[Rfam]
RNA sequence: AGUAACUUCAUUGGGGAGUAGCCGCUAUUUACAAUUAUUGUAAAUAGAUGAUGGUCAACAUACUUGUUCUUUUGAACAUGGUCAUCAUAGCAAAGAACCAAGUUUUUUCUUUUGUUGGCAAGACCUUUGAUU
Numbered sequence: 001a002g003u004a005a006c007u008u009c010a011u012u013g014g015g016g017a018g019u020a021g022c023c024g025c026u027a028u029u030u031a032c033a034a035u036u037a038u039u040g041u042a043a044a045u046a047g048a049u050g051a052u053g054g055u056c057a058a059c060a061u062a063c064u065u066g067u068u069c070u071u072u073u074g075a076a077c078a079u080g081g082u083c084a085u086c087a088u089a090g091c092a093a094a095g096a097a098c099c100a101a102g103u104u105u106u107u108u109c110u111u112u113u114g115u116u117g118g119c120a121a122g123a124c125c126u127u128u129g130a131u132u
Stems, first nucleotide, its partner, number of pairs: 026046005048088010065078005089131001091129005
The record is a 132-nucleotide sequence from Acinetobacter nectaris, which matches "Manganese Mn2+ riboswitch aptamer (yybP-ykoY)" in Rfam.
A search with the family's covariance model found it, with a score of 64 bits.
Lineage of the source: Bacteria > Gammaproteobacteria > Moraxellales > Acinetobacter > Acinetobacter nectaris.